[Rfam]
RNA sequence: GGAUAACAUUGUUUUGCUAUCGUCGGCUAAUAACACUAUGAUAUGUGUAAAAAUUGUCUCACGUGUCAUUGUGUUAUUAGCCAAAGAUAACAAAAAAAUGAUAUCU
Numbered sequence: 001g002g003a004u005a006a007c008a009u010u011g012u013u014u015u016g017c018u019a020u021c022g023u024c025g026g027c028u029a030a031u032a033a034c035a036c037u038a039u040g041a042u043a044u045g046u047g048u049a050a051a052a053a054u055u056g057u058c059u060c061a062c063g064u065g066u067c068a069u070u071g072u073g074u075u076a077u078u079a080g081c082c083a084a085a086g087a088u089a090a091c092a093a094a095a096a097a098a099u100g101a102u103a104u105c106u
Stems, first nucleotide, its partner, number of pairs: 002105004012095005018089003023084001025082012038069010050057001
Shown here is a 106-nucleotide RNA sequence from Prunus armeniaca, a member of the family "MIR6274 microRNA precursor family". Its family is annotated with miRNA-mediated post-transcriptional gene silencing and RISC complex in the Gene Ontology. It scores 82 bits against the family's covariance model. The source organism's lineage runs through Eukaryota, Euphyllophyta, Rosaceae, Amygdaleae and Prunus. Pairs were carried over by alignment from the consensus structure, which was predicted with RNAalifold.